A member of the RNA family "XIST RNA A repeat" from Felis catus, 38 nucleotides long. Lineage of the source: Eukaryota > Eumetazoa > Gnathostomata > Carnivora > Felis. A reference for the family is Duszczyk et al. (2011), "The Xist RNA A-repeat comprises a novel AUCG tetraloop fold and a platform for multimerization", RNA. The base pairs follow the family's consensus structure, which was predicted with CMfinder.

RNA sequence: UUGCCCAUCAGGGCAGCGGAUACCUGCUUUUAAUUUUU
Dot-bracket structure: ..((((....))))..(((....)))............
Numbered sequence: 001u002u003g004c005c006c007a008u009c010a011g012g013g014c015a016g017c018g019g020a021u022a023c024c025u026g027c028u029u030u031u032a033a034u035u036u037u038u
Stems, first nucleotide, its partner, number of pairs: 003014004017026003